[Rfam]
RNA sequence: GACUUGCGAUUGCAACAUCGAUGGUUGGAGCGGAGGACCCGUGUUUUGGGGCUUACUUUCUGCGUGAAAGGGGACACCUCUCAGUCCUAGCCCGUCAGCUAACUUCGUCGGCAACGAGGGGAGAUUCU
Number, nucleotide and partner (000 for none) at each position: 001g000002a000003c000004u000005u000006g000007c000008g000009a000010u000011u113012g112013c111014a000015a000016c000017a000018u029019c028020g000021a000022u000023g000024g000025u000026u000027g000028g019029a018030g108031c107032g106033g105034a104035g103036g000037a000038c000039c000040c048041g047042u000043g000044u000045u000046u000047u041048g040049g093050g092051g091052c000053u000054u000055a000056c000057u069058u068059u067060c066061u000062g000063c000064g000065u000066g060067a059068a058069a057070g000071g000072g087073g086074a085075c084076a000077c000078c000079u000080c000081u000082c000083a000084g075085u074086c073087c072088u000089a000090g000091c051092c050093c049094g000095u000096c000097a000098g000099c000100u000101a000102a000103c035104u034105u033106c032107g031108u030109c000110g000111g013112c012113a011114a000115c000116g000117a000118g000119g000120g000121g000122a000123g000124a000125u000126u000127c000128u000